[Rfam]
RNA sequence: UUCGACCGGCCGGACACCUGUGUGCCCGGCCCACAAGUGGAGGCUCCGAUCUCCCACCUGACUGCCCUCACGGGCGGCGGGUCAUCCGGUCAGGCGGUGUCCAUCGUUCCGUACGGACGAUGGGAAGCUGCCCGAGUUUGCGCCCCGCGGUUCGCAUGCGGAGGUGCUCCGGUUGUGUUGGAGCCCCUGCCUGUGCCCGGCGGGGCAUUUUUG
Number, nucleotide and partner (000 for none) at each position: 001u000002u000003c000004g091005a090006c089007c088008g087009g086010c000011c000012g027013g026014a000015c000016a000017c000018c000019u000020g000021u000022g000023u000024g000025c000026c013027c012028g083029g082030c081031c080032c079033a000034c060035a059036a000037g057038u056039g055040g054041a052042g051043g000044c000045u000046c000047c000048g000049a000050u000051c042052u041053c000054c040055c039056a038057c037058c000059u035060g034061a000062c077063u076064g075065c074066c073067c072068u000069c000070a000071c000072g067073g066074g065075c064076g063077g062078c000079g032080g031081g030082u029083c028084a000085u000086c009087c008088g007089g006090u005091c004092a000093g132094g131095c130096g129097g128098u000099g000100u000101c123102c122103a121104u120105c119106g118107u117108u116109c000110c000111g000112u000113a000114c000115g000116g108117a107118c106119g105120a104121u103122g102123g101124g000125a000126a000127g000128c097129u096130g095131c094132c093133c000134g000135a000136g000137u000138u000139u000140g000141c000142g206143c205144c204145c203146c202147g201148c199149g198150g197151u000152u000153c000154g000155c000156a000157u195158g194159c193160g191161g190162a188163g187164g186165u000166g184167c183168u182169c181170c180171g000172g000173u000174u000175g000176u000177g000178u000179u000180g170181g169182a168183g167184c166185c000186c164187c163188u162189g000190c161191c160192u000193g159194u158195g157196c000197c150198c149199g148200g000201c147202g146203g145204g144205g143206c142207a000208u000209u000210u000211u000212u000213g000